[Rfam]
RNA: purD RNA motif
RNA sequence: GUAAUGCUCUUGUGUGUCGGUGCUAUCGUUUGAGAUAUGUUUACUCUGUCGAGAUAAUGCCGCCGAUAAAGAGCACUCUCUUCGCCCAAAUACGGCUUUUAGAACCAAGCCAACUGCGAGACGGCUACUCGGGC
Numbered sequence: 001g002u003a004a005u006g007c008u009c010u011u012g013u014g015u016g017u018c019g020g021u022g023c024u025a026u027c028g029u030u031u032g033a034g035a036u037a038u039g040u041u042u043a044c045u046c047u048g049u050c051g052a053g054a055u056a057a058u059g060c061c062g063c064c065g066a067u068a069a070a071g072a073g074c075a076c077u078c079u080c081u082u083c084g085c086c087c088a089a090a091u092a093c094g095g096c097u098u099u100u101a102g103a104a105c106c107a108a109g110c111c112a113a114c115u116g117c118g119a120g121a122c123g124g125c126u127a128c129u130c131g132g133g134c
Stems, first nucleotide, its partner, number of pairs: 004077001005075006018062005024056004034050004094111005